mir-135 microRNA precursor family: an 87-nucleotide RNA from Astyanax mexicanus. Its family is annotated with gene silencing by miRNA and RISC complex in the Gene Ontology. On this family, see Kim et al., Proc Natl Acad Sci U S A 2004: "Identification of many microRNAs that copurify with polyribosomes in mammalian neurons". Rfam 15.1 lists 2,125 matches to the family in 647 species. The match comes from Rfam's covariance-model search (74 bits).
RNA sequence: UCACUCCUGUGUUUUAUGGCUUUCUAUUCCUAUGUGACUUCUCUCUAUAAUGUCAUGUAGGGUUCAAAGCCAUUAGGUACAGAGUGG
Number, nucleotide and partner (000 for none) at each position: 001u000002c086003a085004c084005u083006c082007c000008u081009g080010u079011g078012u077013u076014u075015u000016a073017u072018g071019g070020c069021u068022u067023u066024c000025u000026a064027u000028u062029c061030c060031u059032a058033u057034g056035u055036g054037a053038c000039u000040u000041c000042u000043c000044u000045c000046u000047a000048u000049a000050a000051u000052g000053u037054c036055a035056u034057g033058u032059a031060g030061g029062g028063u000064u026065c000066a023067a022068a021069g020070c019071c018072a017073u016074u000075a014076g013077g012078u011079a010080c009081a008082g006083a005084g004085u003086g002087g000